[Rfam]
RNA sequence: AACUCGAUAUCGCUGCACCAAGGGAACCGGGGAACCACCCCCUGCCGGCCAGUCCGGUGGGGAUGGGGUGAAUCGGACAAGUCCCGCCCACGGGCGGGCAGUUCGUAGGAGACCUUCCUGCUCCGAACCCGUCAGCUAACCCGGUAGGCGAGAAGGAAGGAAAGG
Numbered sequence: 001a002a003c004u005c006g007a008u009a010u011c012g013c014u015g016c017a018c019c020a021a022g023g024g025a026a027c028c029g030g031g032g033a034a035c036c037a038c039c040c041c042c043u044g045c046c047g048g049c050c051a052g053u054c055c056g057g058u059g060g061g062g063a064u065g066g067g068g069u070g071a072a073u074c075g076g077a078c079a080a081g082u083c084c085c086g087c088c089c090a091c092g093g094g095c096g097g098g099c100a101g102u103u104c105g106u107a108g109g110a111g112a113c114c115u116u117c118c119u120g121c122u123c124c125g126a127a128c129c130c131g132u133c134a135g136c137u138a139a140c141c142c143g144g145u146a147g148g149c150g151a152g153a154a155g156g157a158a159g160g161a162a163a164g165g
Stems, first nucleotide, its partner, number of pairs: 011150004019024001026145006036065002066130003074105004108124004
c-di-AMP riboswitch aptamer (ydaO/yuaA leader): a 165-nucleotide sequence from Streptomyces abyssalis. The match comes from Rfam's covariance-model search (76 bits). The base pairs follow the family's consensus structure.